[Rfam]
The record is a 50-nucleotide RNA from Flaviflexus salsibiostraticola, which matches "Guanidine-II riboswitch aptamer (mini-ykkC)" in Rfam. The match comes from Rfam's covariance-model search (38 bits). Lineage of the source: Bacteria > Bacillati > Actinomycetota > Actinomycetales > Flaviflexus. On this family, see Sherlock et al., Biochemistry 2017: "Biochemical Validation of a Second Guanidine Riboswitch Class in Bacteria".
RNA sequence: UUCACGGGACGACCCGCGAAGCGAUGAGUUCUCAUUCAGGGACGGCCCUG
Numbered sequence: 001u002u003c004a005c006g007g008g009a010c011g012a013c014c015c016g017c018g019a020a021g022c023g024a025u026g027a028g029u030u031c032u033c034a035u036u037c038a039g040g041g042a043c044g045g046c047c048c049u050g
Base pairs, nucleotide, nucleotide: 001020002019003018005016006015007014008013037050038049039048040047041046